A member of the RNA family "mir-412 microRNA precursor family" from Octodon degus, 87 nucleotides long.
RNA sequence: GGGUACUGGACGGAUGGUCGACCAGUUGGAAAGUAAUUGUUCCUAAUGUACUUCACCUGGUCCACUAGCCGUCUGUGCCUCCCACAG
Numbered sequence: 001g002g003g004u005a006c007u008g009g010a011c012g013g014a015u016g017g018u019c020g021a022c023c024a025g026u027u028g029g030a031a032a033g034u035a036a037u038u039g040u041u042c043c044u045a046a047u048g049u050a051c052u053u054c055a056c057c058u059g060g061u062c063c064a065c066u067a068g069c070c071g072u073c074u075g076u077g078c079c080u081c082c083c084a085c086a087g
Stems, first nucleotide, its partner, number of pairs: 001080006009073005015067004020062006027055003032052004036047004

The family's consensus secondary structure was predicted with RNAalifold.
Gene Ontology terms of the family: RISC complex and miRNA-mediated post-transcriptional gene silencing.